[Rfam]
RNA sequence: CUCAAAGACCGCUAGGGUUCCGGCCGCUUCGAUGUGAAGGCGGCGCUGGUCCGAGAGCAGUCGGCUUCCUUUUCAUCGAGGGGGCUCCACGGAGGGACAAAAGCCCGGGAGAC
Numbered sequence: 001c002u003c004a005a006a007g008a009c010c011g012c013u014a015g016g017g018u019u020c021c022g023g024c025c026g027c028u029u030c031g032a033u034g035u036g037a038a039g040g041c042g043g044c045g046c047u048g049g050u051c052c053g054a055g056a057g058c059a060g061u062c063g064g065c066u067u068c069c070u071u072u073u074c075a076u077c078g079a080g081g082g083g084g085c086u087c088c089a090c091g092g093a094g095g096g097a098c099a100a101a102a103g104c105c106c107g108g109g110a111g112a113c
Base pairs, nucleotide, nucleotide: 007062008061009060011058012057015052016051020049021048022046023044024043025042026041027040028039063086064085065084066083067082068081069080070079088108090111094106095105096104
Annotation:
The family of this 113-nucleotide sequence from Noviherbaspirillum pedocola is "Guanidine-I riboswitch aptamer". The base pairs follow the family's consensus structure. Rfam describes the family as follows. This family represents a conserved RNA structure found upstream of the ykkC and yxkD genes in Bacillus subtilis and related genes in other bacteria. Taxonomically the source falls in Noviherbaspirillum (Bacteria, Pseudomonadati, Burkholderiales, Oxalobacteraceae).